[Rfam]
RNA: Small nucleolar RNA SNORD56
Organism: Onychostoma macrolepis
RNA sequence: UUGCUAUGAUGCUCUUAUUUUUCGUCAACAGUAAUCCACCUCAGUGGUUGUUGAGAUGAUCAUUCUGAGCGG
Number, nucleotide and partner (000 for none) at each position: 001u000002u071003g070004c069005u000006a000007u000008g026009a025010u024011g023012c000013u000014c000015u000016u000017a000018u000019u000020u000021u000022u000023c011024g010025u009026c008027a000028a000029c000030a000031g000032u000033a000034a000035u000036c000037c000038a000039c000040c000041u000042c000043a000044g000045u000046g000047g000048u000049u000050g000051u000052u000053g000054a000055g000056a000057u000058g000059a000060u000061c000062a000063u000064u000065c000066u000067g000068a000069g004070c003071g002072g000